[Rfam]
RNA sequence: CUGCCUCGCCCUUCUUGGGCGUUUCCUCCCUAAACUUCAAGGCCGCUGUCCUCAGCGGCCUUUUUUCUGCCAGAA
Numbered sequence: 001c002u003g004c005c006u007c008g009c010c011c012u013u014c015u016u017g018g019g020c021g022u023u024u025c026c027u028c029c030c031u032a033a034a035c036u037u038c039a040a041g042g043c044c045g046c047u048g049u050c051c052u053c054a055g056c057g058g059c060c061u062u063u064u065u066u067c068u069g070c071c072a073g074a075a
Stems, first nucleotide, its partner, number of pairs: 008020004041060008
The family of this 75-nucleotide sequence from Azospirillum griseum is "Makes More Granules Regulator RNA (mmgR)". Pairs were carried over by alignment from the consensus structure. SuhB later renamed mmgR (makes more granules regulator) was a putative non-coding RNA found multiple times in the Agrobacterium tumefaciens genome and related alpha-proteobacteria. The match comes from Rfam's covariance-model search (66 bits). Rfam links the family to the GO terms DNA-templated transcription, termination, response to nitrogen compound and protein binding. Lineage of the source: Bacteria > Pseudomonadati > Pseudomonadota > Rhodospirillales > Azospirillum.